Notes:
This 57-nucleotide RNA sequence from Capsicum baccatum belongs to the Rfam family "Plastid-psbA-3 3UTR RNA". The source organism's lineage runs through Eukaryota, Pentapetalae, asterids, Capsiceae and Capsicum. It is annotated as a cis-regulatory element.
[Rfam]
RNA sequence: AAAGGAGCAAUAGUACCCUCUUGAUAAAACAAGAAAAUGAUUAUUGCUCCUUACUUU
Numbered sequence: 001a002a003a004g005g006a007g008c009a010a011u012a013g014u015a016c017c018c019u020c021u022u023g024a025u026a027a028a029a030c031a032a033g034a035a036a037a038u039g040a041u042u043a044u045u046g047c048u049c050c051u052u053a054c055u056u057u
Base pairs, nucleotide, nucleotide: 002052003051004050005049006048007047008046009045010044011043012042013041014040019034020033021032022031023030
Pairs were carried over by alignment from the consensus structure, which was predicted with LocARNA. It scores 60 bits against the family's covariance model.